The record is a 355-nucleotide part of an RNA from Victivallis vadensis, which matches "Bacterial small subunit ribosomal RNA" in Rfam.
The base pairs follow the family's consensus structure, which is taken from published work.
Clan: SSU clan.
On this family, see Yusupov et al., Science 2001: "Crystal structure of the ribosome at 5.5 A resolution".
It is one of the family's seed sequences.
Taxonomically the source falls in Victivallis vadensis (Bacteria, Lentisphaerota, Victivallales, Victivallaceae).
[Rfam]
RNA sequence: GGCGUAAAGGGUCUGUAGGAGGUUUGUUAAAUACGAGGUGAAAUCCGGGGGCUCAACUUCCGAAUUGCCUUGUAGACUGAUGAACUAGAGUACUGGAGAGGUAAGCGGAAUACCAGGUGUAGCGGUGGAAUGCGUAGAUAUCUGGUAGAACACCAAUAGCGAAGGCAGCUUGCUGGACAGAAACUGACUCUGAAAGACGAAAGCAUGGGGAGCAAACAGGAUUAGAUACCCUGGUAGUCCAUGCCGUAAACGUUGUCAACUUGAUGUGGGCGGAUUUAGUCCUGUCCGUAUCGAAGCUAACGCGAUAAGUUGACCGCCUGGGAACUACGGCCGCAAGGCUAAAACUCAAAGGAAU
Numbered sequence: 001g002g003c004g005u006a007a008a009g010g011g012u013c014u015g016u017a018g019g020a021g022g023u024u025u026g027u028u029a030a031a032u033a034c035g036a037g038g039u040g041a042a043a044u045c046c047g048g049g050g051g052c053u054c055a056a057c058u059u060c061c062g063a064a065u066u067g068c069c070u071u072g073u074a075g076a077c078u079g080a081u082g083a084a085c086u087a088g089a090g091u092a093c094u095g096g097a098g099a100g101g102u103a104a105g106c107g108g109a110a111u112a113c114c115a116g117g118u119g120u121a122g123c124g125g126u127g128g129a130a131u132g133c134g135u136a137g138a139u140a141u142c143u144g145g146u147a148g149a150a151c152a153c154c155a156a157u158a159g160c161g162a163a164g165g166c167a168g169c170u171u172g173c174u175g176g177a178c179a180g181a182a183a184c185u186g187a188c189u190c191u192g193a194a195a196g197a198c199g200a201a202a203g204c205a206u207g208g209g210g211a212g213c214a215a216a217c218a219g220g221a222u223u224a225g226a227u228a229c230c231c232u233g234g235u236a237g238u239c240c241a242u243g244c245c246g247u248a249a250a251c252g253u254u255g256u257c258a259a260c261u262u263g264a265u266g267u268g269g270g271c272g273g274a275u276u277u278a279g280u281c282c283u284g285u286c287c288g289u290a291u292c293g294a295a296g297c298u299a300a301c302g303c304g305a306u307a308a309g310u311u312g313a314c315c316g317c318c319u320g321g322g323a324a325c326u327a328c329g330g331c332c333g334c335a336a337g338g339c340u341a342a343a344a345c346u347c348a349a350a351g352g353a354a355u
Base pairs, nucleotide, nucleotide: 001318002317003316009315011198012197013196014195016192018191019190020189022085023084024083025082026081027080028079030078032074033073034072035071036070037069038068039067040066046062047061048060049059050058051057089185090184091183093180094179095178100174101173102172103171104170105169106168107151111147112146113145114144115143116142117141118140122133123132124131159166160165203244204243205242206241207240208239212238213237217233218232219231220230255314256313257312258311259310260309263292264291265290266289267288268287269286270285271284272283273282296303297302320347321346322345329340330339331338332337